[Rfam]
RNA sequence: AUUGCUCACUCUCCCUCAAGGGCUUCCGAAUUUGCCUGUUAAAGGGCUUAAACUGAAGCGCUUGGGGAAGAGUGGAUAA
Number, nucleotide and partner (000 for none) at each position: 001a000002u000003u000004g000005c000006u075007c074008a073009c072010u071011c070012u069013c000014c067015c066016u000017c064018a063019a062020g061021g000022g059023c058024u057025u056026c055027c000028g000029a000030a000031u000032u000033u000034g000035c000036c000037u000038g000039u000040u000041a000042a000043a000044g000045g000046g000047c000048u000049u000050a000051a000052a000053c000054u000055g026056a025057a024058g023059c022060g000061c020062u019063u018064g017065g000066g015067g014068a000069a012070g011071a010072g009073u008074g007075g006076a000077u000078a000079a000
A member of the RNA family "MIR473 microRNA precursor family" from Theobroma cacao, 79 nucleotides long. The source organism's lineage runs through Eukaryota, Viridiplantae, eudicotyledons, Malvaceae and Theobroma. The base pairs follow the family's consensus structure, which was predicted with WAR. Its family is annotated with miRNA-mediated post-transcriptional gene silencing and RISC complex in the Gene Ontology. A reference for the family is Lu et al. (2005), "Novel and mechanical stress-responsive MicroRNAs in Populus trichocarpa that are absent from Arabidopsis", Plant Cell.